[Rfam]
Nucleotides: 072
Stems, first nucleotide, its partner, number of pairs: 002072004
Number, partner (000 for none) and nucleotide at each position: 001000u002072a003071g004070c005069a006000u007000a008000u009000c010000a011000c012000a013000a014000a015000u016000u017000u018000u019000u020000u021000g022000g023000a024000u025000u026000c027000c028000c029000c030000u031000u032000c033000a034000a035000a036000a037000c038000u039000u040000c041000u042000u043000g044000a045000u046000u047000g048000a049000u050000g051000c052000a053000a054000g055000u056000c057000c058000c059000g060000a061000g062000u063000u064000u065000c066000a067000g068000a069005u070004g071003c072002u
The record is a 72-nucleotide sequence from Momordica charantia, which matches "Small nucleolar RNA snoR60" in Rfam. It is annotated as a C/D-box small nucleolar RNA. Clan: SNORD101 clan. On this family, see Barneche et al., J Biol Chem 2000: "Fibrillarin genes encode both a conserved nucleolar protein and a novel small nucleolar RNA involved in ribosomal RNA methylation in Arabidopsis thaliana". Rfam links the family to the GO terms nucleolus and RNA processing.